[Rfam]
RNA sequence: AAAGAAGACCCUGUUGAGCUUGACUCUAGUCUGACGUUGUGAAAUGACUUGGGAGGUGUAGAAUAAGUGGGAGGCUCUGCCGUCUGUGAAAUACCACUACUCUCAAUGUUGUUUUACUUAUACCAUGAUGUAGCAUCUGUGUGGCCUCGCGGUCGCUCAGUUCUAGUUGUAAACUUGGGCUUUUGCCUGGGUGAGCUACGUGGAAGACAUCGUCAGGUGGGGAGUUUGGCUGGGGCGGCACAUCUGUUAAAUGAUAACACAGGUGUCCUAAGGUGAGCUCAAUGAGAACAGAAAUCUCAUGUAGAACAAAAGGGUAAAAGCUCACUUGAUUUUGAUUUUCAGUAUGAAUACAAACCGUGAAAGCGUGGCCUAUCGAUCCUUUAGUUCUUUUGAAUUUUAAGCUAGAGGUGUCAGAAAAGUUACCACAGGGAUAACUGGCUUGUGGCAGCCAAGCGUCCAUAGCGACGUUGCUUUUUGAUUCUUCGAUGUCGGCUCUUCCUAUCAUUGCGAAGUAGAACUCGCCAAUUGUUGGAUUGUUCACCCACUAAUAGGGAACGUGAGCUGGGUUUAGACCGUCGUGAGACAGGUUAGUUUUAC
Numbered sequence: 001a002a003a004g005a006a007g008a009c010c011c012u013g014u015u016g017a018g019c020u021u022g023a024c025u026c027u028a029g030u031c032u033g034a035c036g037u038u039g040u041g042a043a044a045u046g047a048c049u050u051g052g053g054a055g056g057u058g059u060a061g062a063a064u065a066a067g068u069g070g071g072a073g074g075c076u077c078u079g080c081c082g083u084c085u086g087u088g089a090a091a092u093a094c095c096a097c098u099a100c101u102c103u104c105a106a107u108g109u110u111g112u113u114u115u116a117c118u119u120a121u122a123c124c125a126u127g128a129u130g131u132a133g134c135a136u137c138u139g140u141g142u143g144g145c146c147u148c149g150c151g152g153u154c155g156c157u158c159a160g161u162u163c164u165a166g167u168u169g170u171a172a173a174c175u176u177g178g179g180c181u182u183u184u185g186c187c188u189g190g191g192u193g194a195g196c197u198a199c200g201u202g203g204a205a206g207a208c209a210u211c212g213u214c215a216g217g218u219g220g221g222g223a224g225u226u227u228g229g230c231u232g233g234g235g236c237g238g239c240a241c242a243u244c245u246g247u248u249a250a251a252u253g254a255u256a257a258c259a260c261a262g263g264u265g266u267c268c269u270a271a272g273g274u275g276a277g278c279u280c281a282a283u284g285a286g287a288a289c290a291g292a293a294a295u296c297u298c299a300u301g302u303a304g305a306a307c308a309a310a311a312g313g314g315u316a317a318a319a320g321c322u323c324a325c326u327u328g329a330u331u332u333u334g335a336u337u338u339u340c341a342g343u344a345u346g347a348a349u350a351c352a353a354a355c356c357g358u359g360a361a362a363g364c365g366u367g368g369c370c371u372a373u374c375g376a377u378c379c380u381u382u383a384g385u386u387c388u389u390u391u392g393a394a395u396u397u398u399a400a401g402c403u404a405g406a407g408g409u410g411u412c413a414g415a416a417a418a419g420u421u422a423c424c425a426c427a428g429g430g431a432u433a434a435c436u437g438g439c440u441u442g443u444g445g446c447a448g449c450c451a452a453g454c455g456u457c458c459a460u461a462g463c464g465a466c467g468u469u470g471c472u473u474u475u476u477g478a479u480u481c482u483u484c485g486a487u488g489u490c491g492g493c494u495c496u497u498c499c500u501a502u503c504a505u506u507g508c509g510a511a512g513u514a515g516a517a518c519u520c521g522c523c524a525a526u527u528g529u530u531g532g533a534u535u536g537u538u539c540a541c542c543c544a545c546u547a548a549u550a551g552g553g554a555a556c557g558u559g560a561g562c563u564g565g566g567u568u569u570a571g572a573c574c575g576u577c578g579u580g581a582g583a584c585a586g587g588u589u590a591g592u593u594u595u596a597c
Stems, first nucleotide, its partner, number of pairs: 002595002010429004015425002017421005023225004030217007039117010049106007066098005073081002121205001123203003131198004139156003173192005228241001229239003242264006267368002273325006279305002282300006306315002330354003335349004356365003379407006387401003438479001440477001442476001444472006453463002490565001491563004495557001496554005503528002507522004530544003534540001571589004575584003
Overview
The family of this 597-nucleotide part of an RNA from Phytophthora infestans is "Eukaryotic large subunit ribosomal RNA". Rfam's curators put it in the seed alignment. On this family, see Yusupov et al., Science 2001: "Crystal structure of the ribosome at 5.5 A resolution". NCBI's taxonomy places the organism under Eukaryota, Sar, Peronosporomycetes, Peronosporales, Phytophthora infestans.